[Rfam]
RNA sequence: GUCAUAUGCUUGUCUCAAAGAUUAAGCCAUGCAUGUCCAAGCACAAGCCGAAUUAAGGUGAAGCUGCGAACGGCUCAUUAAAUCACACCUCAUAUACUGGAUAGUGUCAGUUACUUGGAUAAACUGCGGUAAUUCUGGAGCUAAUACAUGCUACAACUCCUUUACGUUGUGUGAGGGGUGCUUUUAUUAGACCAAAACCAAACGGCUUCACGGCCGUCUUGUUGGUGAUUCUGAAUAACUUUUUGCUGAUCGCACGGCUCGUUCCGGCGACGUAUCUUUCUAAGGUGUGCCCUAUCAACUGUCGACUGUGGCAUAGACGCCCACAGUGGUUUUGACGGGUAACGGGGAAUCAGGUUCGAUUCCGGAGAGGGAGCCUGAGAAACGGCUACCACUUCUAAGGGAGGCAGCAGGCACGCAAAUUACCCACUGGUCAAAGACCGAGGUAGUGACGAAAAAUAACGAUACCGGACUCAUCCGAGGCCCGGUAAUCGGAAUGAGUACACUUUAAAACCUUUAACGAGGAUCCAUUGGAGGGCAAGUCUGGUGCCAGCAGCCGCGGUAAUUCCAGCUCAAUAGCGUAUAUAAUGUUGUUG
Numbered sequence: 001g002u003c004a005u006a007u008g009c010u011u012g013u014c015u016c017a018a019a020g021a022u023u024a025a026g027c028c029a030u031g032c033a034u035g036u037c038c039a040a041g042c043a044c045a046a047g048c049c050g051a052a053u054u055a056a057g058g059u060g061a062a063g064c065u066g067c068g069a070a071c072g073g074c075u076c077a078u079u080a081a082a083u084c085a086c087a088c089c090u091c092a093u094a095u096a097c098u099g100g101a102u103a104g105u106g107u108c109a110g111u112u113a114c115u116u117g118g119a120u121a122a123a124c125u126g127c128g129g130u131a132a133u134u135c136u137g138g139a140g141c142u143a144a145u146a147c148a149u150g151c152u153a154c155a156a157c158u159c160c161u162u163u164a165c166g167u168u169g170u171g172u173g174a175g176g177g178g179u180g181c182u183u184u185u186a187u188u189a190g191a192c193c194a195a196a197a198c199c200a201a202a203c204g205g206c207u208u209c210a211c212g213g214c215c216g217u218c219u220u221g222u223u224g225g226u227g228a229u230u231c232u233g234a235a236u237a238a239c240u241u242u243u244u245g246c247u248g249a250u251c252g253c254a255c256g257g258c259u260c261g262u263u264c265c266g267g268c269g270a271c272g273u274a275u276c277u278u279u280c281u282a283a284g285g286u287g288u289g290c291c292c293u294a295u296c297a298a299c300u301g302u303c304g305a306c307u308g309u310g311g312c313a314u315a316g317a318c319g320c321c322c323a324c325a326g327u328g329g330u331u332u333u334g335a336c337g338g339g340u341a342a343c344g345g346g347g348a349a350u351c352a353g354g355u356u357c358g359a360u361u362c363c364g365g366a367g368a369g370g371g372a373g374c375c376u377g378a379g380a381a382a383c384g385g386c387u388a389c390c391a392c393u394u395c396u397a398a399g400g401g402a403g404g405c406a407g408c409a410g411g412c413a414c415g416c417a418a419a420u421u422a423c424c425c426a427c428u429g430g431u432c433a434a435a436g437a438c439c440g441a442g443g444u445a446g447u448g449a450c451g452a453a454a455a456a457u458a459a460c461g462a463u464a465c466c467g468g469a470c471u472c473a474u475c476c477g478a479g480g481c482c483c484g485g486u487a488a489u490c491g492g493a494a495u496g497a498g499u500a501c502a503c504u505u506u507a508a509a510a511c512c513u514u515u516a517a518c519g520a521g522g523a524u525c526c527a528u529u530g531g532a533g534g535g536c537a538a539g540u541c542u543g544g545u546g547c548c549a550g551c552a553g554c555c556g557c558g559g560u561a562a563u564u565c566c567a568g569c570u571c572a573a574u575a576g577c578g579u580a581u582a583u584a585a586u587g588u589u590g591u592u593g
Stems, first nucleotide, its partner, number of pairs: 001583002004581007013454001015452002019447001020414001026412003030409003035067002040065003047059002074367003084289003089284002093282002099277004114150001116148002124140002127137003158178004164172002184238005197226004205214003250270004255266003291339003298330003305327007343364004347357004369390002372387003392403004420445001422444003428440005460491003463487006470479003498518002500515001502514001528573002531571003541568004550557002
A member of the RNA family "Eukaryotic small subunit ribosomal RNA" from Tigriopus californicus, 593 nucleotides of a longer RNA.
The organism belongs to Tigriopus, within Eukaryota.
A search with the family's covariance model found it, with a score of 1668 bits.
Pairs were carried over by alignment from the consensus structure, which is taken from published work.